[Rfam]
Shown here is a 68-nucleotide RNA from Xiphophorus maculatus, a member of the family "mir-33 microRNA precursor family". Rfam 15.1 lists 1,467 matches to the family in 815 species. Taxonomically the source falls in Xiphophorus (Eukaryota, Eumetazoa, Teleostei, Osteoglossocephalai). On this family, see Li et al., BMC Genomics 2009: "Direct sequencing and expression analysis of a large number of miRNAs in Aedes aegypti and a multi-species survey of novel mosquito miRNAs".
RNA sequence: CUGUGGUGCAUUGUAGUUGCAUUGCAUGAUCCUCAGUCUGAGUGCAAUGUCUCUGCAGUGCAGUACAG
Numbered sequence: 001c002u003g004u005g006g007u008g009c010a011u012u013g014u015a016g017u018u019g020c021a022u023u024g025c026a027u028g029a030u031c032c033u034c035a036g037u038c039u040g041a042g043u044g045c046a047a048u049g050u051c052u053c054u055g056c057a058g059u060g061c062a063g064u065a066c067a068g
Stems, first nucleotide, its partner, number of pairs: 001068004006064001007062010019050001021048007
Dot-bracket structure: ((((.(((((((((((..(.(((((((..............))))))).)..)))))))))).)))))